[Rfam]
Notes
Shown here is a 189-nucleotide sequence from gamma proteobacterium HdN1, a member of the family "Manganese Mn2+ riboswitch aptamer (yybP-ykoY)". NCBI's taxonomy places the organism under Bacteria, Pseudomonadati, Pseudomonadota, Gammaproteobacteria. On this family, see Dambach et al., Mol Cell 2015: "The ubiquitous yybP-ykoY riboswitch is a manganese-responsive regulatory element". Pairs were carried over by alignment from the consensus structure. Rfam's curators write: This RNA was originally discovered in E. coli during a large scale screen and was named SraF. The family was later found to exist upstream of related families of protein genes in many bacteria, including the the yybP and ykoK genes in B. subtilis.
RNA sequence: CUGAUAUACUUCGCUGGUCAUUGGGGAGUAGCCGAUCUUCGCACUGAAGAUGCUUACGUCAACACACUUGGCCCACAGGCCAUGGCGUAAGCGGUUCACACGCUUGGCAAGACCUUUGACCACAACGCCUCCGUAUUAAGGCUGGGGAUGCGUCGUGGUCAAUUGUGUCUAAUCCAGCCUGAGAAUCGU
Number, nucleotide and partner (000 for none) at each position: 001c049002u048003g000004a000005u000006a000007u000008a000009c000010u000011u000012c000013g000014c000015u000016g000017g000018u000019c000020a000021u000022u000023g000024g000025g000026g000027a000028g000029u000030a000031g000032c000033c000034g000035a000036u000037c000038u000039u000040c000041g000042c000043a000044c000045u000046g000047a000048a002049g001050a000051u000052g092053c091054u090055u089056a088057c087058g086059u085060c084061a083062a000063c000064a000065c000066a000067c000068u000069u082070g081071g080072c079073c078074c000075a000076c000077a000078g073079g072080c071081c070082a069083u061084g060085g059086c058087g057088u056089a055090a054091g053092c052093g187094g186095u185096u184097c183098a000099c181100a000101c000102g000103c000104u000105u000106g000107g000108c000109a000110a000111g000112a000113c000114c000115u000116u000117u000118g000119a000120c000121c000122a000123c000124a000125a000126c000127g000128c000129c000130u000131c000132c000133g000134u000135a000136u000137u000138a000139a000140g000141g000142c000143u000144g000145g000146g000147g000148a000149u000150g000151c000152g000153u000154c000155g000156u000157g000158g000159u000160c000161a000162a000163u000164u000165g000166u000167g000168u000169c000170u000171a000172a000173u000174c000175c000176a000177g000178c000179c000180u000181g099182a000183g097184a096185a095186u094187c093188g000189u000